Group II catalytic intron D1-D4-6: a 261-nucleotide sequence from Imhoffiella purpurea. Rfam 15.1 lists 1,617 matches to the family in 661 species. The match comes from Rfam's covariance-model search (112 bits). The literature on the family includes a 2003 paper in Crit Rev Biochem Mol Biol by Lehmann and Schmidt, "Group II introns: structure and catalytic versatility of large natural ribozymes". Its family is annotated with Group II intron splicing in the Gene Ontology.
[Rfam]
RNA sequence: AAAGUCCCUGUCGGGAAAGGGCUAGCCCCCCACCCGUAUCGAGUGUUGAUCUCAUUGCGGAGCAGGUAACUGCGAACAAGAAGAUGAGGUAAGCGUACACAGAGAAUUCUGUAGGCCGUAGGGGAGAUCGCGCUCCCUGAAGUGCUGGUACAGCUUCGACAAGUUCAGUUCCGGACGCCGAGGGUUUUAACGUGCACCGAAGGCAACACAGAAGCACCCGCUAUGGCGAGGGUGUGGAGGUCCGGCGGAGUCCACAGGCCA
Numbered sequence: 001a002a003a004g005u006c007c008c009u010g011u012c013g014g015g016a017a018a019g020g021g022c023u024a025g026c027c028c029c030c031c032a033c034c035c036g037u038a039u040c041g042a043g044u045g046u047u048g049a050u051c052u053c054a055u056u057g058c059g060g061a062g063c064a065g066g067u068a069a070c071u072g073c074g075a076a077c078a079a080g081a082a083g084a085u086g087a088g089g090u091a092a093g094c095g096u097a098c099a100c101a102g103a104g105a106a107u108u109c110u111g112u113a114g115g116c117c118g119u120a121g122g123g124g125a126g127a128u129c130g131c132g133c134u135c136c137c138u139g140a141a142g143u144g145c146u147g148g149u150a151c152a153g154c155u156u157c158g159a160c161a162a163g164u165u166c167a168g169u170u171c172c173g174g175a176c177g178c179c180g181a182g183g184g185u186u187u188u189a190a191c192g193u194g195c196a197c198c199g200a201a202g203g204c205a206a207c208a209c210a211g212a213a214g215c216a217c218c219c220g221c222u223a224u225g226g227c228g229a230g231g232g233u234g235u236g237g238a239g240g241u242c243c244g245g246c247g248g249a250g251u252c253c254a255c256a257g258g259c260c261a
Stems, first nucleotide, its partner, number of pairs: 012036004019031003023229001025227002039103002043100004047095002049090008153251006171245006177204003182198002209239001214235006